Rfam assigns this 87-nucleotide RNA from Sediminibacillus albus to the family "BsrC".
It is annotated as a small RNA.
The 301 nucleotide sequence from Kouji Nakamura has been trimmed to a highly conserved ~85 nucleotide long core to form this family.
The family's consensus secondary structure was predicted with CMfinder.
Nucleotides: 087
Stems, first nucleotide, its partner, number of pairs: 035066002039062002043056005
Number, partner (000 for none) and nucleotide at each position: 001000u002000a003000a004000a005000c006000c007000u008000u009000a010000g011000a012000c013000g014000a015000c016000g017000u018000a019000a020000g021000c022000c023000c024000u025000a026000c027000c028000u029000c030000u031000c032000u033000u034000a035066c036065a037000u038000c039062c040061u041000u042000a043056c044055g045054g046053c047052u048000c049000c050000g051000a052047a053046g054045c055044c056043g057000a058000u059000c060000c061040a062039g063000u064000g065036u066035g067000a068000a069000u070000a071000a072000g073000u074000g075000u076000u077000a078000c079000u080000a081000a082000a083000a084000a085000c086000u087000a
Source information:
The organism belongs to Sediminibacillus, within Bacteria.